[Rfam]
RNA sequence: UAGCCUGAAAGGAUGAUAUGAGUUCAUGUCUCUUCUCUGAUAUUUGUCAUGGAGACAGCUAGAUGAGUUUCUGAUCAGGCUU
Number, nucleotide and partner (000 for none) at each position: 001u000002a081003g080004c079005c078006u000007g000008a000009a000010a000011g000012g000013a000014u000015g000016a000017u000018a000019u000020g000021a000022g000023u000024u000025c000026a000027u000028g000029u000030c000031u000032c000033u000034u000035c000036u000037c000038u000039g000040a000041u000042a000043u000044u000045u000046g000047u000048c000049a000050u000051g000052g000053a000054g000055a000056c000057a000058g000059c000060u000061a000062g000063a000064u000065g000066a000067g000068u000069u000070u000071c000072u000073g000074a000075u000076c000077a000078g005079g004080c003081u002082u000
A member of the RNA family "Small nucleolar RNA SNORD111" from Bucco capensis, 82 nucleotides long. For this family Rfam cites "Purified box C/D snoRNPs are able to reproduce site-specific 2'-O-methylation of target RNA in vitro" (Galardi et al., Mol Cell Biol, 2002). Its family is annotated with nucleolus and RNA processing in the Gene Ontology. The family's consensus secondary structure was predicted with RNAalifold. The family has 5 seed sequences and 894 matches in Rfam 15.1. Lineage of the source: Eukaryota > Teleostomi > Dipnotetrapodomorpha > Sauria > Bucco.